[Rfam]
The record is a 143-nucleotide sequence from Anseranas semipalmata, which matches "Small nucleolar RNA SNORA12" in Rfam. It scores 69 bits against the family's covariance model. Rfam's curators write: U108 belongs to the H/ACA family of snoRNAs. The family's RNA type in Rfam is H/ACA-box small nucleolar RNA. The literature on the family includes a 2005 paper in Nucleic Acids Res by Gu et al., "A novel experimental approach for systematic identification of box H/ACA snoRNAs from eukaryotes". Rfam links the family to the GO terms RNA processing and nucleolus. Pairs were carried over by alignment from the consensus structure, which was predicted with RNAalifold.
RNA sequence: UAUUGUGGUGGCUUCUGGAUUUGGCAGAUCUGUAACUGUAUCAGAGCGGCCUUGAACUACCACAGAGAUCAGAAAGGAGGGAGACUGUGCUGAGAACUUUUUCAGGCUCUUAGUUUUCAGCUUUUUGUUCACCUCCUACAGAA
Numbered sequence: 001u002a003u004u005g006u007g008g009u010g011g012c013u014u015c016u017g018g019a020u021u022u023g024g025c026a027g028a029u030c031u032g033u034a035a036c037u038g039u040a041u042c043a044g045a046g047c048g049g050c051c052u053u054g055a056a057c058u059a060c061c062a063c064a065g066a067g068a069u070c071a072g073a074a075a076g077g078a079g080g081g082a083g084a085c086u087g088u089g090c091u092g093a094g095a096a097c098u099u100u101u102u103c104a105g106g107c108u109c110u111u112a113g114u115u116u117u118c119a120g121c122u123u124u125u126u127g128u129u130c131a132c133c134u135c136c137u138a139c140a141g142a143a
Base pairs, nucleotide, nucleotide: 005063006062007061008060009059010058011057023051024050025049027047029045030044031043032042076136077135078134079133080132103127104126105125106124